[Rfam]
RNA: c-di-GMP-I riboswitch aptamer
Organism: Fictibacillus arsenicus
RNA sequence: AAAGGAUAAAGGCAAACCUAUGGAAACAUAGCGACGCAAAGCUAAAGGGGCUUCUGCACACCGUGUAAUGCCAGCCAGCUGCGAUC
Numbered sequence: 001a002a003a004g005g006a007u008a009a010a011g012g013c014a015a016a017c018c019u020a021u022g023g024a025a026a027c028a029u030a031g032c033g034a035c036g037c038a039a040a041g042c043u044a045a046a047g048g049g050g051c052u053u054c055u056g057c058a059c060a061c062c063g064u065g066u067a068a069u070g071c072c073a074g075c076c077a078g079c080u081g082c083g084a085u086c
Base pairs, nucleotide, nucleotide: 012037013036018031019030020029021028022027040080041079042078043077047076048075049072050071051070056066057065058064059063